Small nucleolar RNA Z107/R87: a 111-nucleotide RNA from Oryza meyeriana. The match comes from Rfam's covariance-model search (98 bits).

RNA sequence: GAUGGCUGUGACGACUCGGUAAAAUUCAAGCUCAACAGACCAAAUCACAGGUCUACCUCCAGGCCUUUGGAGGUCCAUCUGUACGCCGAAUUUCCGCUCAGCCGAGCCAUC
Numbered sequence: 001g002a003u004g005g006c007u008g009u010g011a012c013g014a015c016u017c018g019g020u021a022a023a024a025u026u027c028a029a030g031c032u033c034a035a036c037a038g039a040c041c042a043a044a045u046c047a048c049a050g051g052u053c054u055a056c057c058u059c060c061a062g063g064c065c066u067u068u069g070g071a072g073g074u075c076c077a078u079c080u081g082u083a084c085g086c087c088g089a090a091u092u093u094c095c096g097c098u099c100a101g102c103c104g105a106g107c108c109a110u111c
Stems, first nucleotide, its partner, number of pairs: 001111006
Taxonomically the source falls in Oryza meyeriana (Eukaryota, Liliopsida, Petrosaviidae, commelinids).
The family's consensus secondary structure was predicted with RNAfold.
Its family is annotated with RNA processing and nucleolus in the Gene Ontology.